[Rfam]
RNA sequence: CUGUUCUCUCGGCCUCUUUACAGUGCUAUCUUGUAGCCUCAAUCAAGCAGCAUUGUACAGGGCUAUGAGAGAGCAA
Numbered sequence: 001c002u003g004u005u006c007u008c009u010c011g012g013c014c015u016c017u018u019u020a021c022a023g024u025g026c027u028a029u030c031u032u033g034u035a036g037c038c039u040c041a042a043u044c045a046a047g048c049a050g051c052a053u054u055g056u057a058c059a060g061g062g063c064u065a066u067g068a069g070a071g072a073g074c075a076a
Stems, first nucleotide, its partner, number of pairs: 014062004019057009030047004
Description
The family of this 76-nucleotide RNA from Petromyzon marinus is "mir-103/107 microRNA precursor family". Rfam's curators write: This family consists of the mammalian microRNA (miRNA) precursors mir-103 and mir107. Animal miRNAs are transcribed as ~70nt precursors and subsequently processed by the Dicer enzyme to give a ~22nt product. The organism belongs to Petromyzon, within Eukaryota. Rfam 15.1 lists 1,982 matches to the family in 645 species.